[Rfam]
RNA sequence: AUCUGGCCAAUGCCCUUUUAACAUUGCACUGCUAGUGACAGGUGCAGACAGUAGCACAAUGUAAAAAGAGCUCUGGCCAGCAG
Number, nucleotide and partner (000 for none) at each position: 001a000002u082003c000004u000005g078006g077007c076008c075009a074010a000011u000012g071013c070014c000015c068016u067017u066018u065019u064020a000021a000022c061023a060024u059025u058026g057027c000028a000029c054030u053031g000032c000033u000034a000035g000036u000037g000038a000039c000040a000041g000042g000043u000044g000045c000046a000047g000048a000049c000050a000051g000052u000053a030054g029055c000056a000057c026058a025059a024060u023061g022062u000063a000064a019065a018066a017067a016068g015069a000070g013071c012072u000073c000074u009075g008076g007077c006078c005079a000080g000081c000082a002083g000
The record is an 83-nucleotide sequence from Orycteropus afer, which matches "mir-130 microRNA precursor family" in Rfam. For this family Rfam cites "Embryonic stem cell-specific MicroRNAs" (Houbaviy et al., Dev Cell, 2003). The source organism's lineage runs through Eukaryota, Bilateria, Orycteropodidae, Orycteropus and Orycteropus afer. The family's consensus secondary structure was predicted with PFOLD.